[Rfam]
RNA sequence: GCAUAUCCAAGGCCGCAAGGCUCGCCACGAACUGAAGGUUUUCCCUUCUUUCCUCCCGAGCGGGCUAAGGUCUGAGUCUUCAAGGCUCCUCCAAUCGACUCUAGCGGGGUCCGAUCUGUAAUGGUCGAGCGACAAACAAGGAAUUGAUCCUCUCCCAGCGUUGUUCCCGGAGAUCCUUUCGUUCAGUGUCUAGACUUCGUGUCUGGUGCUACACGGGAGGGGAGGGUGCUGUUGGAGGCCUUGAGAUUUGUUGCGGAGCCCGGGCUGUUCACCAUACCCGCGCCUCGGUGACCCGACCAUCACCCUAUCGCAUUUUUCCAUCCUUUGCGGGUGGGCAGAGUUCUCGGCAGGCUCUGCAGCUCCCAACCCCUGACAAUCCAGGAGGCUAAGUUACGAUUCCUCUGAGGAGUUGCUGUAUGGGGGGCAUCUCCUAAUGGAUACUGGUCAUAGCCGAACCCCAUCUCCAAGUGCAAAUUGGUGAAAUCGUCGUGGCUUCUGGGCCAGGCCACGACAUAACCGUCGCUGUGCAUUUGUAGUUGGCCCGGGUUUUGUCCCAUGACUGGGCAAUGCUGUCAAACCUCCUUCAAGAGAUCCUUGAAGGGUUCCGGAGUCGCCGUCCGGUGUCGGGUUGUCAGGCGGGAGUCUAGUGUAUGAGGGGUGAGGGGCACCAGUGCGGGCAUUGUUGUUUCGCCCUUGAGUCCAAUUUGCGGCUCACGCACUUGCGUGAAACUCAAUUCAGACUACUCUGGGUCUGC
Numbered sequence: 001g002c003a004u005a006u007c008c009a010a011g012g013c014c015g016c017a018a019g020g021c022u023c024g025c026c027a028c029g030a031a032c033u034g035a036a037g038g039u040u041u042u043c044c045c046u047u048c049u050u051u052c053c054u055c056c057c058g059a060g061c062g063g064g065c066u067a068a069g070g071u072c073u074g075a076g077u078c079u080u081c082a083a084g085g086c087u088c089c090u091c092c093a094a095u096c097g098a099c100u101c102u103a104g105c106g107g108g109g110u111c112c113g114a115u116c117u118g119u120a121a122u123g124g125u126c127g128a129g130c131g132a133c134a135a136a137c138a139a140g141g142a143a144u145u146g147a148u149c150c151u152c153u154c155c156c157a158g159c160g161u162u163g164u165u166c167c168c169g170g171a172g173a174u175c176c177u178u179u180c181g182u183u184c185a186g187u188g189u190c191u192a193g194a195c196u197u198c199g200u201g202u203c204u205g206g207u208g209c210u211a212c213a214c215g216g217g218a219g220g221g222g223a224g225g226g227u228g229c230u231g232u233u234g235g236a237g238g239c240c241u242u243g244a245g246a247u248u249u250g251u252u253g254c255g256g257a258g259c260c261c262g263g264g265c266u267g268u269u270c271a272c273c274a275u276a277c278c279c280g281c282g283c284c285u286c287g288g289u290g291a292c293c294c295g296a297c298c299a300u301c302a303c304c305c306u307a308u309c310g311c312a313u314u315u316u317u318c319c320a321u322c323c324u325u326u327g328c329g330g331g332u333g334g335g336c337a338g339a340g341u342u343c344u345c346g347g348c349a350g351g352c353u354c355u356g357c358a359g360c361u362c363c364c365a366a367c368c369c370c371u372g373a374c375a376a377u378c379c380a381g382g383a384g385g386c387u388a389a390g391u392u393a394c395g396a397u398u399c400c401u402c403u404g405a406g407g408a409g410u411u412g413c414u415g416u417a418u419g420g421g422g423g424g425c426a427u428c429u430c431c432u433a434a435u436g437g438a439u440a441c442u443g444g445u446c447a448u449a450g451c452c453g454a455a456c457c458c459c460a461u462c463u464c465c466a467a468g469u470g471c472a473a474a475u476u477g478g479u480g481a482a483a484u485c486g487u488c489g490u491g492g493c494u495u496c497u498g499g500g501c502c503a504g505g506c507c508a509c510g511a512c513a514u515a516a517c518c519g520u521c522g523c524u525g526u527g528c529a530u531u532u533g534u535a536g537u538u539g540g541c542c543c544g545g546g547u548u549u550u551g552u553c554c555c556a557u558g559a560c561u562g563g564g565c566a567a568u569g570c571u572g573u574c575a576a577a578c579c580u581c582c583u584u585c586a587a588g589a590g591a592u593c594c595u596u597g598a599a600g601g602g603u604u605c606c607g608g609a610g611u612c613g614c615c616g617u618c619c620g621g622u623g624u625c626g627g628g629u630u631g632u633c634a635g636g637c638g639g640g641a642g643u644c645u646a647g648u649g650u651a652u653g654a655g656g657g658g659u660g661a662g663g664g665g666c667a668c669c670a671g672u673g674c675g676g677g678c679a680u681u682g683u684u685g686u687u688u689c690g691c692c693c694u695u696g697a698g699u700c701c702a703a704u705u706u707g708c709g710g711c712u713c714a715c716g717c718a719c720u721u722g723c724g725u726g727a728a729a730c731u732c733a734a735u736u737c738a739g740a741c742u743a744c745u746c747u748g749g750g751u752c753u754g755c
Stems, first nucleotide, its partner, number of pairs: 001755003007749003012711007020061005034048005072739005089258004097111005112127005129254007149238005712727006